[Rfam]
RNA sequence: CUGGGGUGCAUUGUAGUUGCAUUGCAUAUACCUAUGAAAAAGUGCAAUACUUCUGUAGUGCAACACCAG
Numbered sequence: 001c002u003g004g005g006g007u008g009c010a011u012u013g014u015a016g017u018u019g020c021a022u023u024g025c026a027u028a029u030a031c032c033u034a035u036g037a038a039a040a041a042g043u044g045c046a047a048u049a050c051u052u053c054u055g056u057a058g059u060g061c062a063a064c065a066c067c068a069g
Stems, first nucleotide, its partner, number of pairs: 001069004007062010019050001021048007

The record is a 69-nucleotide RNA from Zootermopsis nevadensis, which matches "mir-33 microRNA precursor family" in Rfam. NCBI's taxonomy places the organism under Eukaryota, Metazoa, Neoptera, Termitoidae, Zootermopsis. The family's consensus secondary structure was predicted with PFOLD. The family has 73 seed sequences and 1,467 matches in Rfam 15.1. It scores 64 bits against the family's covariance model.